[Rfam]
RNA sequence: GCUCUCGUAGCUCAGUAGGUAGAGCGUGCGGCUGUUAACCGCAAGGUCUACGGUUCGAUCCCGUACGAGAGCG
Numbered sequence: 001g002c003u004c005u006c007g008u009a010g011c012u013c014a015g016u017a018g019g020u021a022g023a024g025c026g027u028g029c030g031g032c033u034g035u036u037a038a039c040c041g042c043a044a045g046g047u048c049u050a051c052g053g054u055u056c057g058a059u060c061c062c063g064u065a066c067g068a069g070a071g072c073g
Stems, first nucleotide, its partner, number of pairs: 001072007010025004027043005049065005
Shown here is a 73-nucleotide sequence from Tetrabaena socialis, a member of the family "tRNA".
The organism belongs to Tetrabaena, within Eukaryota.
Rfam classes the family as a transfer RNA.
Rfam describes the family as follows. Transfer RNA (tRNA) molecules are approximately 80 nucleotides in length.
The family's consensus secondary structure is taken from published work.